RNA sequence: CGUUGAUGUGAUGAUAUGUUUCUCGGAAUCUCCACCGUGUCGACUAAAUUACAGACUACAAUUAUCUGAUCAACG
Numbered sequence: 001c002g003u004u005g006a007u008g009u010g011a012u013g014a015u016a017u018g019u020u021u022c023u024c025g026g027a028a029u030c031u032c033c034a035c036c037g038u039g040u041c042g043a044c045u046a047a048a049u050u051a052c053a054g055a056c057u058a059c060a061a062u063u064a065u066c067u068g069a070u071c072a073a074c075g
Base pairs, nucleotide, nucleotide: 001075002074003073004072005071006070
Shown here is a 75-nucleotide RNA sequence from Malus domestica, a member of the family "Small nucleolar RNA Z155". Rfam links the family to the GO terms RNA processing and nucleolus. It is annotated as a C/D-box small nucleolar RNA. The base pairs follow the family's consensus structure.